tRNA: a 71-nucleotide RNA from Aspergillus nidulans. From the family's description: Transfer RNA (tRNA) molecules are approximately 80 nucleotides in length. Their secondary structure includes four short double-helical elements and three loops (D, anti-codon, and T loops). The family's consensus secondary structure is taken from published work. The sequence is in the family's curated seed alignment.
RNA sequence: GUGGGUGUAGUUCAAAGGUAGAACAGCUGUAUGUGGCAUAGUAUAUCCUAGUUCAAUUCUAGGUAUCCACC
Numbered sequence: 001g002u003g004g005g006u007g008u009a010g011u012u013c014a015a016a017g018g019u020a021g022a023a024c025a026g027c028u029g030u031a032u033g034u035g036g037c038a039u040a041g042u043a044u045a046u047c048c049u050a051g052u053u054c055a056a057u058u059c060u061a062g063g064u065a066u067c068c069a070c071c
Base pairs, nucleotide, nucleotide: 001070002069003068004067005066006065007064010024011023012022013021026042027041028040029039030038047063048062049061050060051059